[Rfam]
RNA: RNase MRP
Organism: Musa acuminata
RNA sequence: GCGCUACAGGACGGAGUGAUCGGGUCUGUUGACCCUGGAAAGUCCCCGGGCCUCCAUCCGCAGAGAUGCAGUCACGUAAUGGUGUCUCGUCGAGCUUCGGGCCAGUAUGGCUGAGACACGUGUGGAGCCAUACGGGCCCGAACCGGAGAGAUUAAUUAUGGCCGUUGAAAACAGUUAUUCACUCGAUUCGUAACCGUUGGAUCAACAGAACGGGGCUUAUGAUCCUGUGGCG
Numbered sequence: 001g002c003g004c005u006a007c008a009g010g011a012c013g014g015a016g017u018g019a020u021c022g023g024g025u026c027u028g029u030u031g032a033c034c035c036u037g038g039a040a041a042g043u044c045c046c047c048g049g050g051c052c053u054c055c056a057u058c059c060g061c062a063g064a065g066a067u068g069c070a071g072u073c074a075c076g077u078a079a080u081g082g083u084g085u086c087u088c089g090u091c092g093a094g095c096u097u098c099g100g101g102c103c104a105g106u107a108u109g110g111c112u113g114a115g116a117c118a119c120g121u122g123u124g125g126a127g128c129c130a131u132a133c134g135g136g137c138c139c140g141a142a143c144c145g146g147a148g149a150g151a152u153u154a155a156u157u158a159u160g161g162c163c164g165u166u167g168a169a170a171a172c173a174g175u176u177a178u179u180c181a182c183u184c185g186a187u188u189c190g191u192a193a194c195c196g197u198u199g200g201a202u203c204a205a206c207a208g209a210a211c212g213g214g215g216c217u218u219a220u221g222a223u224c225c226u227g228u229g230g231c232g
Stems, first nucleotide, its partner, number of pairs: 002232010014184006022035005040218003044215004060069003071086001073084003096142008105133001108130004118123001186202005